[Rfam]
RNA: Small nucleolar RNA SNORD24
Organism: Cynoglossus semilaevis
Nucleotides: 069
Stems, first nucleotide, its partner, number of pairs: 001069004
Number, partner (000 for none) and nucleotide at each position: 001069u002068g003067c004066a005000g006000a007000u008000g009000a010000u011000g012000u013000u014000a015000a016000g017000a018000a019000u020000a021000u022000u023000u024000g025000c026000u027000a028000u029000c030000u031000u032000a033000a034000c035000u036000a037000c038000a039000a040000u041000g042000a043000a044000g045000a046000c047000a048000u049000c050000c051000c052000a053000c054000c055000a056000a057000g058000a059000u060000c061000a062000c063000u064000g065000a066004u067003g068002c069001a